[Rfam]
RNA sequence: AAGUGAAAUGAUGGCAAUCAUCUUUCAGGACUGACCUGAAAUAAAGAGAAUACUCUCUGCCAAUCACUU
Numbered sequence: 001a002a003g004u005g006a007a008a009u010g011a012u013g014g015c016a017a018u019c020a021u022c023u024u025u026c027a028g029g030a031c032u033g034a035c036c037u038g039a040a041a042u043a044a045a046g047a048g049a050a051u052a053c054u055c056u057c058u059g060c061c062a063a064u065c066a067c068u069u
Base pairs, nucleotide, nucleotide: 001069002068003067004066005065006064
Source information
Rfam assigns this 69-nucleotide RNA from Nannospalax galili to the family "Small nucleolar RNA SNORD2". The family's consensus secondary structure was predicted with WAR. By type it is a C/D-box small nucleolar RNA. The source organism's lineage runs through Eukaryota, Vertebrata, Euteleostomi, Glires and Nannospalax. The family has 17 seed sequences and 1,116 matches in Rfam 15.1. A reference for the family is Zhou et al. (2004), "Identification of a novel box C/D snoRNA from mouse nucleolar cDNA library", Gene.